Rfam assigns this 291-nucleotide RNA from Nannospalax galili to the family "Mason-Pfizer monkey virus packaging signal". The source organism's lineage runs through Eukaryota, Amniota, Boreoeutheria, Muroidea and Nannospalax.
RNA sequence: UGGCACCCAACGUGGGGCUGGAUAUGGAGGAUCCAGUGUGGGAAGAAGACGGCCCCCAAGGAACGCGUUCCACAACAAUUCUUCACUCUGGACACGCCGUGGGAACCUGCCUCAGCUACAACCAGAAGUAAGUAUCGGCGUCUGAUUAUGGGACAAGAAUUAAGCAGGCACGAAAUUUCAGGCAUGAAAUUUAUGUUCGGCAAUUGCAGGAUGCCUUACGGACGCAAGGAGUAAAGGUUAAAAUAGAGGAUCUAUUGAGGUUCUUUGAAUUUAUUAAGGAAACCUGUCCUU
Numbered sequence: 001u002g003g004c005a006c007c008c009a010a011c012g013u014g015g016g017g018c019u020g021g022a023u024a025u026g027g028a029g030g031a032u033c034c035a036g037u038g039u040g041g042g043a044a045g046a047a048g049a050c051g052g053c054c055c056c057c058a059a060g061g062a063a064c065g066c067g068u069u070c071c072a073c074a075a076c077a078a079u080u081c082u083u084c085a086c087u088c089u090g091g092a093c094a095c096g097c098c099g100u101g102g103g104a105a106c107c108u109g110c111c112u113c114a115g116c117u118a119c120a121a122c123c124a125g126a127a128g129u130a131a132g133u134a135u136c137g138g139c140g141u142c143u144g145a146u147u148a149u150g151g152g153a154c155a156a157g158a159a160u161u162a163a164g165c166a167g168g169c170a171c172g173a174a175a176u177u178u179c180a181g182g183c184a185u186g187a188a189a190u191u192u193a194u195g196u197u198c199g200g201c202a203a204u205u206g207c208a209g210g211a212u213g214c215c216u217u218a219c220g221g222a223c224g225c226a227a228g229g230a231g232u233a234a235a236g237g238u239u240a241a242a243a244u245a246g247a248g249g250a251u252c253u254a255u256u257g258a259g260g261u262u263c264u265u266u267g268a269a270u271u272u273a274u275u276a277a278g279g280a281a282a283c284c285u286g287u288c289c290u291u
Stems, first nucleotide, its partner, number of pairs: 006030002012025003037048001039046001085129003088125002099113001101111002135156001137154001141152004161218003164214003225267008235253005276291005
By type it is a cis-regulatory element.